[Rfam]
RNA: freshwater-2 RNA
RNA sequence: UGUGCCGCGAGGCGGACUUAUGCUGUACCCACAGCGUACCGGAUAGAACCCGGAUAGGACUACUUUUUAUAGGAGAAAAAAAAUG
Numbered sequence: 001u002g003u004g005c006c007g008c009g010a011g012g013c014g015g016a017c018u019u020a021u022g023c024u025g026u027a028c029c030c031a032c033a034g035c036g037u038a039c040c041g042g043a044u045a046g047a048a049c050c051c052g053g054a055u056a057g058g059a060c061u062a063c064u065u066u067u068u069a070u071a072g073g074a075g076a077a078a079a080a081a082a083a084u085g
Stems, first nucleotide, its partner, number of pairs: 001016001003014004019038007039053004